[Rfam]
RNA sequence: UACUAACAAACCCUAUCUCCACCUCCACGUGGUGAUCACUGGGAGUUCUUUCUUCAUGAAAAACUUCAGACGGAAAAGG
Numbered sequence: 001u002a003c004u005a006a007c008a009a010a011c012c013c014u015a016u017c018u019c020c021a022c023c024u025c026c027a028c029g030u031g032g033u034g035a036u037c038a039c040u041g042g043g044a045g046u047u048c049u050u051u052c053u054u055c056a057u058g059a060a061a062a063a064c065u066u067c068a069g070a071c072g073g074a075a076a077a078g079g
Stems, first nucleotide, its partner, number of pairs: 012079003016075001018073002021033003044066002047063001049061004
Dot-bracket structure: ...........(((.(.((.(((.......)))..........((.(.((((.....)))).).)).....)).).)))

Shown here is a 79-nucleotide sequence from Hermetia illucens, a member of the family "drz-agam-1 ribozyme". Its family is annotated with catalytic activity in the Gene Ontology. A reference for the family is Webb et al. (2009), "Widespread occurrence of self-cleaving ribozymes", Science.